[Rfam]
RNA sequence: GGUCACGAGUGCCAGCGUUCAGCCCCGGCUUGCUGGUCGGCAACCCUCCUCCGCGGCGGGGUGCUCCGGGUGACGACCUGGCCGGUCGCGCAGUGCGGCUCGGCAAGCGCGGACC
Numbered sequence: 001g002g003u004c005a006c007g008a009g010u011g012c013c014a015g016c017g018u019u020c021a022g023c024c025c026c027g028g029c030u031u032g033c034u035g036g037u038c039g040g041c042a043a044c045c046c047u048c049c050u051c052c053g054c055g056g057c058g059g060g061g062u063g064c065u066c067c068g069g070g071u072g073a074c075g076a077c078c079u080g081g082c083c084g085g086u087c088g089c090g091c092a093g094u095g096c097g098g099c100u101c102g103g104c105a106a107g108c109g110c111g112g113a114c115c
Stems, first nucleotide, its partner, number of pairs: 001078004009038001011037006021030002039065003044061003048056002081104005087098001
Record summary
This 115-nucleotide sequence from Motilibacter rhizosphaerae belongs to the Rfam family "SAM (S-adenosyl methionine) riboswitch aptamer". Taxonomically the source falls in Motilibacter (Bacteria, Bacillati, Actinomycetes, Motilibacterales).